[Rfam]
RNA sequence: AUUCAUAAAAUAUUUAUUACUGUAUAUGUCCGGAAAUAAGGUCUGGACGUUUCUACCAAGCUGCCGUAAAUGGCUUGUCUACAGGUUAAGCUUUUCCCCGU
Numbered sequence: 001a002u003u004c005a006u007a008a009a010a011u012a013u014u015u016a017u018u019a020c021u022g023u024a025u026a027u028g029u030c031c032g033g034a035a036a037u038a039a040g041g042u043c044u045g046g047a048c049g050u051u052u053c054u055a056c057c058a059a060g061c062u063g064c065c066g067u068a069a070a071u072g073g074c075u076u077g078u079c080u081a082c083a084g085g086u087u088a089a090g091c092u093u094u095u096c097c098c099c100g101u
Stems, first nucleotide, its partner, number of pairs: 019086002021083004028048007057077007

Rfam assigns this 101-nucleotide RNA from Bacillus sp. NRRL B-14911 to the family "Purine riboswitch aptamer". Rfam links the family to the GO term purine nucleobase biosynthetic process. The family is grouped with related families in Rfam's "Purine riboswitches".